[Rfam]
The record is a 149-nucleotide RNA sequence from Carlito syrichta, which matches "U12 minor spliceosomal RNA" in Rfam.
It scores 107 bits against the family's covariance model.
NCBI's taxonomy places the organism under Eukaryota, Metazoa, Craniata, Theria, Carlito.
RNA sequence: AUGCCUUGCACUUAUGAGAAGGAAAAUAAUGAUUCAGGGUGAUGCCCGAAUCCUCACUGCUAAUAUGAGACGAAAUUUUGAGUAAGUAAAGGUUGCCGCUAAGGUGACCCGCCUACUUUGCGGGGUGCCUGGAAUUCUCAAUCUGCCUG
Numbered sequence: 001a002u003g004c005c006u007u008g009c010a011c012u013u014a015u016g017a018g019a020a021g022g023a024a025a026a027u028a029a030u031g032a033u034u035c036a037g038g039g040u041g042a043u044g045c046c047c048g049a050a051u052c053c054u055c056a057c058u059g060c061u062a063a064u065a066u067g068a069g070a071c072g073a074a075a076u077u078u079u080g081a082g083u084a085a086g087u088a089a090a091g092g093u094u095g096c097c098g099c100u101a102a103g104g105u106g107a108c109c110c111g112c113c114u115a116c117u118u119u120g121c122g123g124g125g126u127g128c129c130u131g132g133a134a135u136u137c138u139c140a141a142u143c144u145g146c147c148u149g
Stems, first nucleotide, its partner, number of pairs: 004022004031052005037046002053069004083149002086146002090144006100132001102130005108124005
Rfam classes the family as a spliceosomal small nuclear RNA.